[Rfam]
RNA sequence: AGAGGUCACAAGUUUGUGGGCCAUAGUAGACGCAUUCAAAGUGCGGCCAUGUCAGAUUCCAACAAAUCUGUGAAUCCUGCU
Numbered sequence: 001a002g003a004g005g006u007c008a009c010a011a012g013u014u015u016g017u018g019g020g021c022c023a024u025a026g027u028a029g030a031c032g033c034a035u036u037c038a039a040a041g042u043g044c045g046g047c048c049a050u051g052u053c054a055g056a057u058u059c060c061a062a063c064a065a066a067u068c069u070g071u072g073a074a075u076c077c078u079g080c081u
Stems, first nucleotide, its partner, number of pairs: 017049002020047003025081005032044003053070006

Mammalian CPEB3 ribozyme: an 81-nucleotide RNA from Alligator mississippiensis. Taxonomically the source falls in Alligator (Eukaryota, Opisthokonta, Eumetazoa, Archelosauria).